Overview: Potassium channel RNA editing signal: a 114-nucleotide RNA from Poecilia reticulata. Its family is annotated with adenosine to inosine editing in the Gene Ontology. Rfam 15.1 lists 14,095 matches to the family in 1,000 species. A search with the family's covariance model found it, with a score of 84 bits. For this family Rfam cites "Control of human potassium channel inactivation by editing of a small mRNA hairpin" (Bhalla et al., Nat Struct Mol Biol, 2004). Lineage of the source: Eukaryota > Osteoglossocephalai > Euteleosteomorpha > Cyprinodontoidei > Poecilia. The base pairs follow the family's consensus structure, which is taken from published work. Rfam describes the family as follows. This family represents a group of sequences related to the human potassium channel Kv1.1 hairpin element which directs the efficient modification of an adenosine to inosine by an adenosine deaminase acting on RNA (ADAR). The ADAR modification causes an isoleucine/valine recoding event which lies in the ion-conducting pore of the potassium channel. It is thought that this editing event targets the process of fast inactivation and allows a more rapid recovery from inactivation at negative potentials.
[Rfam]
RNA sequence: CACAGAUAUGGCGACAUGGUCCCAAAGACGAUUGCAGGAAAGAUCUUUGGCUCAAUCUGCUCUCUGAGUGGGGUGUUGGUAAUUGCCCUUCCUGUUCCUGUCAUCGUGUCCAAC
Numbered sequence: 001c002a003c004a005g006a007u008a009u010g011g012c013g014a015c016a017u018g019g020u021c022c023c024a025a026a027g028a029c030g031a032u033u034g035c036a037g038g039a040a041a042g043a044u045c046u047u048u049g050g051c052u053c054a055a056u057c058u059g060c061u062c063u064c065u066g067a068g069u070g071g072g073g074u075g076u077u078g079g080u081a082a083u084u085g086c087c088c089u090u091c092c093u094g095u096u097c098c099u100g101u102c103a104u105c106g107u108g109u110c111c112a113a114c
Base pairs, nucleotide, nucleotide: 005110007108008107009106010105011104013102014101015100016099018097019096021094037077038076040074049063050062